[Rfam]
The record is a 68-nucleotide RNA, which matches "int-alpA RNA" in Rfam.
RNA sequence: AGCCAGCCUAUCCCGACGGGGAGAAAGGUGGAGUCAUUACCCGCUUGGCUGGCUUUCCCUCAGUAAUG
Numbered sequence: 001a002g003c004c005a006g007c008c009u010a011u012c013c014c015g016a017c018g019g020g021g022a023g024a025a026a027g028g029u030g031g032a033g034u035c036a037u038u039a040c041c042c043g044c045u046u047g048g049c050u051g052g053c054u055u056u057c058c059c060u061c062a063g064u065a066a067u068g
Stems, first nucleotide, its partner, number of pairs: 001054008011022004027045005035068006

Acidobacteria (1 example), Planctomycetes (1 example), Proteobacteria.